Small nucleolar RNA SNORA1: a 131-nucleotide RNA from Monodelphis domestica. The family's RNA type in Rfam is H/ACA-box small nucleolar RNA. It is one of the family's seed sequences. The family's consensus secondary structure was predicted with PFOLD.
[Rfam]
RNA sequence: UGCCAUAUUUCUAAUGAUCAUGAGCACACUUGGAAGUUUGUGUUCAGAAUAUAAUGUGGCUAUAAUAAAAGACAGGUUUUGCUUCCAUCACUAAAGUUUUGUUAGUGGUGACAAUGAGACCUGUAACAAUC
Numbered sequence: 001u002g003c004c005a006u007a008u009u010u011c012u013a014a015u016g017a018u019c020a021u022g023a024g025c026a027c028a029c030u031u032g033g034a035a036g037u038u039u040g041u042g043u044u045c046a047g048a049a050u051a052u053a054a055u056g057u058g059g060c061u062a063u064a065a066u067a068a069a070a071g072a073c074a075g076g077u078u079u080u081g082c083u084u085c086c087a088u089c090a091c092u093a094a095a096g097u098u099u100u101g102u103u104a105g106u107g108g109u110g111a112c113a114a115u116g117a118g119a120c121c122u123g124u125a126a127c128a129a130u131c
Base pairs, nucleotide, nucleotide: 002060003059004058006056007055008054021046022045023044024043025042026041027040072124073123074122075121076120086110087109088108089107090106091105